[Rfam]
RNA sequence: AAAUGUAAUAAUUGUAAGUCGCUUUGGAUAAAAGUGUCUGCUAAACACCCUAAA
Numbered sequence: 001a002a003a004u005g006u007a008a009u010a011a012u013u014g015u016a017a018g019u020c021g022c023u024u025u026g027g028a029u030a031a032a033a034g035u036g037u038c039u040g041c042u043a044a045a046c047a048c049c050c051u052a053a054a
Stems, first nucleotide, its partner, number of pairs: 013043001014041003020036006
Dot-bracket structure: ............((((...((((((.....))))))..))).)...........
Shown here is a 54-nucleotide RNA sequence from Gadus morhua, a member of the family "UnaL2 LINE 3' element". The family's RNA type in Rfam is cis-regulatory element. From the family's description: The eel long interspersed element (LINE) UnaL2 and its partner short interspersed element (SINE) share a conserved 3' tail containing a stem-loop that is critical for their retrotransposition. Presumably, the first step of retrotransposition is the recognition of their 3' tails by UnaL2-encoded reverse transcriptase. The solution structure of a 17-nucleotide RNA derived from the 3' tail of UnaL2 was determined by NMR.